[Rfam]
RNA sequence: GGGGUGUGCUUAGAGUAGGGGGCCUGAAGAAAUGAGUCCUCUGUUUAUAACACACCCAACAGGAAUCUGGGUUCAUUGUGACAAGGGGCACAAAACUUGUGGCCUUUCUAUGAACAAAUACCCAAACACA
Numbered sequence: 001g002g003g004g005u006g007u008g009c010u011u012a013g014a015g016u017a018g019g020g021g022g023c024c025u026g027a028a029g030a031a032a033u034g035a036g037u038c039c040u041c042u043g044u045u046u047a048u049a050a051c052a053c054a055c056c057c058a059a060c061a062g063g064a065a066u067c068u069g070g071g072u073u074c075a076u077u078g079u080g081a082c083a084a085g086g087g088g089c090a091c092a093a094a095a096c097u098u099g100u101g102g103c104c105u106u107u108c109u110a111u112g113a114a115c116a117a118a119u120a121c122c123c124a125a126a127c128a129c130a
Stems, first nucleotide, its partner, number of pairs: 002057007013046009024034001070123002073120001077116003082112002085105003089101005

Rfam assigns this 130-nucleotide RNA from Bos taurus to the family "Small nucleolar RNA SNORA11". The family's RNA type in Rfam is H/ACA-box small nucleolar RNA. The organism belongs to Bos, within Eukaryota. About the family: U107 (SNORA11) is a member of the H/ACA class of snoRNAs that guide the sites of modification of uridines to pseudouridines. It is one of the family's seed sequences. The literature on the family includes a 2005 paper in Nucleic Acids Res by Gu et al., "A novel experimental approach for systematic identification of box H/ACA snoRNAs from eukaryotes".